[Rfam]
RNA sequence: GCCUUCUCUUCCCAGUUCUUCCUGGAGUCGGGGAAAAGCUGGGUUGAGAAGGU
Numbered sequence: 001g002c003c004u005u006c007u008c009u010u011c012c013c014a015g016u017u018c019u020u021c022c023u024g025g026a027g028u029c030g031g032g033g034a035a036a037a038g039c040u041g042g043g044u045u046g047a048g049a050a051g052g053u
Base pairs, nucleotide, nucleotide: 004050005049006048007047008046011043012042013041014040015039019035020034021032022031023030024029
This 53-nucleotide sequence from Homo sapiens belongs to the Rfam family "mir-320 microRNA precursor family".
Rfam's curators put it in the seed alignment.
On this family, see Berezikov et al., Genome Res 2006: "Many novel mammalian microRNA candidates identified by extensive cloning and RAKE analysis".
The organism belongs to Homo, within Eukaryota.
Pairs were carried over by alignment from the consensus structure, which was predicted with RNAalifold.